Overview:
This 107-nucleotide RNA sequence from Ruminococcus sp. CAG:624 belongs to the Rfam family "TPP riboswitch aptamer (THI element)".
RNA sequence: CUUAAAUACUCGGGGGGCUUGUAUACAGGCUGAGAGGAAGGUGUGACCUUCGACCCAUUUAACCUGAUUUGGAUAAUGCCAACGUAGGGAAGCUCAGUUAAGAACGC
Dot-bracket structure: ........((.(((..(((((....)))))......(((((.....)))))..)))......((((..((((......))))..))))..))...............

From the family's description: Vitamin B(1) in its active form thiamin pyrophosphate (TPP) is an essential coenzyme that is synthesised by coupling of pyrimidine and thiazole moieties in bacteria.
It scores 69 bits against the family's covariance model.
The organism belongs to Ruminococcus, within Bacteria.